[Rfam]
RNA sequence: UGAUAGCGUUGAAGCGUGAGGUUGCCGUCCCUUGUGGCGGGUUUUCCGUGGAGCGAAUGUCAAGUUAGGAAACUGGCGACAA
Numbered sequence: 001u002g003a004u005a006g007c008g009u010u011g012a013a014g015c016g017u018g019a020g021g022u023u024g025c026c027g028u029c030c031c032u033u034g035u036g037g038c039g040g041g042u043u044u045u046c047c048g049u050g051g052a053g054c055g056a057a058u059g060u061c062a063a064g065u066u067a068g069g070a071a072a073c074u075g076g077c078g079a080c081a082a
Stems, first nucleotide, its partner, number of pairs: 014049003018046004025040005058081004064077004